Overview: This 97-nucleotide sequence from Musa troglodytarum belongs to the Rfam family "Small nucleolar RNA R64/Z200 family". Its family is annotated with RNA processing and nucleolus in the Gene Ontology. The family has 14 seed sequences and 748 matches in Rfam 15.1.

[Rfam]
RNA sequence: UUGAUGUUACGAUGAAUUUUGAAAUGGAAUCUUCGCAUGUCAGACUUCAGAGAUACCUCGAGUAUCGAUGAGAAGCCAUUUCAUUCUUCUGAGCCAG
Numbered sequence: 001u002u003g004a005u006g007u008u009a010c011g012a013u014g015a016a017u018u019u020u021g022a023a024a025u026g027g028a029a030u031c032u033u034c035g036c037a038u039g040u041c042a043g044a045c046u047u048c049a050g051a052g053a054u055a056c057c058u059c060g061a062g063u064a065u066c067g068a069u070g071a072g073a074a075g076c077c078a079u080u081u082c083a084u085u086c087u088u089c090u091g092a093g094c095c096a097g
Stems, first nucleotide, its partner, number of pairs: 001097003006094002052066004